Background: The family of this 65-nucleotide RNA sequence from Uliginosibacterium sp. TH139 is "Betaproteobacteria toxic small RNA". Taxonomically the source falls in Uliginosibacterium (Bacteria, Betaproteobacteria, Rhodocyclales, Zoogloeaceae). The literature on the family includes a 2017 paper in Sci Rep by Sass et al., "Identification of small RNAs abundant in Burkholderia cenocepacia biofilms reveal putative regulators with a potential role in carbon and iron metabolism". From the family's description: Overexpression in amino aid rich medium attenuates growth, suggesting role in repressing amino acid intake and metabolism. The match comes from Rfam's covariance-model search (54 bits).

[Rfam]
RNA sequence: UGUCUCCUCCACCCUCCUCCUUUGGUGUGGACUUGGCGCAGCCCCACAAGGGCUGCGUUUUUUUC
Numbered sequence: 001u002g003u004c005u006c007c008u009c010c011a012c013c014c015u016c017c018u019c020c021u022u023u024g025g026u027g028u029g030g031a032c033u034u035g036g037c038g039c040a041g042c043c044c045c046a047c048a049a050g051g052g053c054u055g056c057g058u059u060u061u062u063u064u065c
Stems, first nucleotide, its partner, number of pairs: 008031005013025002036058008